mir-31 microRNA precursor family: an 86-nucleotide RNA sequence from Pristionchus pacificus.

[Rfam]
RNA sequence: GUAUCCGAGUGAGGCAAGAUGUUGGCAUAGCUGAUGGUCGAAUUGAAGCAAUUCCGCUCUGCCACAUGUAGCCACGCACGGCCGAC
Numbered sequence: 001g002u003a004u005c006c007g008a009g010u011g012a013g014g015c016a017a018g019a020u021g022u023u024g025g026c027a028u029a030g031c032u033g034a035u036g037g038u039c040g041a042a043u044u045g046a047a048g049c050a051a052u053u054c055c056g057c058u059c060u061g062c063c064a065c066a067u068g069u070a071g072c073c074a075c076g077c078a079c080g081g082c083c084g085a086c
Base pairs, nucleotide, nucleotide: 005081006080007079009077010076011075013073014072015071017069019067020066021065023064024063025062026061027060029058030057031056

The match comes from Rfam's covariance-model search (56 bits). Clan: mir-31 microRNA precursor family. Pairs were carried over by alignment from the consensus structure, which was predicted with RNAalifold. A reference for the family is Aravin et al. (2003), "The small RNA profile during Drosophila melanogaster development", Dev Cell.